The record is an 83-nucleotide RNA sequence from Neolamprologus brichardi, which matches "Small nucleolar RNA SNORD79" in Rfam. The base pairs follow the family's consensus structure, which was predicted with PFOLD. Rfam classes the family as a C/D-box small nucleolar RNA.
Nucleotides: 083
Stems, first nucleotide, its partner, number of pairs: 001083006
Number, partner (000 for none) and nucleotide at each position: 001083g002082a003081c004080u005079g006078u007000u008000a009000a010000u011000g012000a013000u014000g015000a016000c017000u018000u019000u020000u021000g022000u023000u024000u025000u026000u027000a028000a029000a030000a031000c032000a033000a034000u035000g036000g037000g038000a039000a040000u041000c042000u043000c044000u045000c046000u047000g048000a049000a050000a051000a052000a053000g054000a055000g056000u057000g058000a059000a060000a061000g062000a063000g064000g065000a066000c067000u068000u069000u070000u071000u072000u073000c074000u075000g076000a077000u078006g079005c080004a081003g082002u083001u
NCBI's taxonomy places the organism under Eukaryota, Chordata, Ctenosquamata, Pseudocrenilabrinae, Neolamprologus. Rfam links the family to the GO terms nucleolus and RNA processing. Rfam's curators write: snoRNA U79 or Z22 is found in intron 7 of the gas5 gene in humans and is also present in mice. The family is grouped with related families in Rfam's "SNORD74 clan".